[Rfam]
RNA sequence: AUGCUAUGAUUAUGACACUUCUGAAGUACUUUAUUGAAUCUAUUCCAUGCCUAAUCGAAGGAUUCGAUUUCUUUCUGUCAAAAUUUGGAUAUGUCAUACUUCAACUU
Dot-bracket structure: (.(..(..................................................((.(..........).))..........................)...).)
Numbered sequence: 001a002u003g004c005u006a007u008g009a010u011u012a013u014g015a016c017a018c019u020u021c022u023g024a025a026g027u028a029c030u031u032u033a034u035u036g037a038a039u040c041u042a043u044u045c046c047a048u049g050c051c052u053a054a055u056c057g058a059a060g061g062a063u064u065c066g067a068u069u070u071c072u073u074u075c076u077g078u079c080a081a082a083a084u085u086u087g088g089a090u091a092u093g094u095c096a097u098a099c100u101u102c103a104a105c106u107u
Stems, first nucleotide, its partner, number of pairs: 001107001003105001006101001057074002060071001
Plant small nucleolar RNA R71: a 107-nucleotide sequence from Olea europaea. For this family Rfam cites "Plant snoRNAs: functional evolution and new modes of gene expression" (Brown et al., Trends Plant Sci, 2003). The family's consensus secondary structure was predicted with PFOLD.